[Rfam]
RNA sequence: CGAGUUAGCCAGACAAUCGCUGCUUUAUCGUUGUAUUGAUGCUUCGGCUGAAAUAGACAGGUAGAGGGGAGGAAAGUCCGGGCUCCACAGAGCAGGGUGCCAGAUAACGUCUGGGCGGCGUAAGCCGACGACAAGUGCAGCAGAGAGAAGACCGCCUAAGUAUUUCUUGUAAAUACCGGUAAGGGUGAAAGGGUGCGGUAAGAGCGCACCGGGCCGCUGGUAACAGUUGGCAGCAGGGUAAACUCCACCCGGAGCAAGACCAAAUAGGGUUCCUUAUGGCGUGGCUCGCGUUGGAACCGGGUAGGUUGCUUGAGCCUUAGAGCGAUUUAAGGCCUAGACGAAUGAUUGUCACUUUUCUGAUGAAAAGACACAGAACCCGGCUUACAGGCUAACUCACAUA
Numbered sequence: 001c002g003a004g005u006u007a008g009c010c011a012g013a014c015a016a017u018c019g020c021u022g023c024u025u026u027a028u029c030g031u032u033g034u035a036u037u038g039a040u041g042c043u044u045c046g047g048c049u050g051a052a053a054u055a056g057a058c059a060g061g062u063a064g065a066g067g068g069g070a071g072g073a074a075a076g077u078c079c080g081g082g083c084u085c086c087a088c089a090g091a092g093c094a095g096g097g098u099g100c101c102a103g104a105u106a107a108c109g110u111c112u113g114g115g116c117g118g119c120g121u122a123a124g125c126c127g128a129c130g131a132c133a134a135g136u137g138c139a140g141c142a143g144a145g146a147g148a149a150g151a152c153c154g155c156c157u158a159a160g161u162a163u164u165u166c167u168u169g170u171a172a173a174u175a176c177c178g179g180u181a182a183g184g185g186u187g188a189a190a191g192g193g194u195g196c197g198g199u200a201a202g203a204g205c206g207c208a209c210c211g212g213g214c215c216g217c218u219g220g221u222a223a224c225a226g227u228u229g230g231c232a233g234c235a236g237g238g239u240a241a242a243c244u245c246c247a248c249c250c251g252g253a254g255c256a257a258g259a260c261c262a263a264a265u266a267g268g269g270u271u272c273c274u275u276a277u278g279g280c281g282u283g284g285c286u287c288g289c290g291u292u293g294g295a296a297c298c299g300g301g302u303a304g305g306u307u308g309c310u311u312g313a314g315c316c317u318u319a320g321a322g323c324g325a326u327u328u329a330a331g332g333c334c335u336a337g338a339c340g341a342a343u344g345a346u347u348g349u350c351a352c353u354u355u356u357c358u359g360a361u362g363a364a365a366a367g368a369c370a371c372a373g374a375a376c377c378c379g380g381c382u383u384a385c386a387g388g389c390u391a392a393c394u395c396a397c398a399u400a
Stems, first nucleotide, its partner, number of pairs: 002395009012350007020069002023066006074383003078380005083254004090287004095250005100114005115129001116127004130245002135243002137239002152184002154180003160176005192210006211234001213231004217226003258307004268298006278292005314333008
The record is a 400-nucleotide RNA sequence from Endozoicomonas sp. G2_1, which matches "Bacterial RNase P class A" in Rfam.
The match comes from Rfam's covariance-model search (323 bits).
It is annotated as a ribozyme.
NCBI's taxonomy places the organism under Bacteria, Gammaproteobacteria, Oceanospirillales, Endozoicomonadaceae, Endozoicomonas.